RNA sequence: GCGCGACUAGCUCAAUUGGCAGAGCAGCUGACUCUUAAUCAGCGGGUUCGGGGUUCAAGUCCCUGGUCGCGCA
Numbered sequence: 001g002c003g004c005g006a007c008u009a010g011c012u013c014a015a016u017u018g019g020c021a022g023a024g025c026a027g028c029u030g031a032c033u034c035u036u037a038a039u040c041a042g043c044g045g046g047u048u049c050g051g052g053g054u055u056c057a058a059g060u061c062c063c064u065g066g067u068c069g070c071g072c073a
Stems, first nucleotide, its partner, number of pairs: 001072007010025004027043005049065005

The record is a 73-nucleotide RNA from Phycisphaerae bacterium RAS2, which matches "tRNA" in Rfam.
It is annotated as a transfer RNA.
It scores 67 bits against the family's covariance model.
Taxonomically the source falls in Phycisphaerae (Bacteria, Pseudomonadati, Planctomycetota).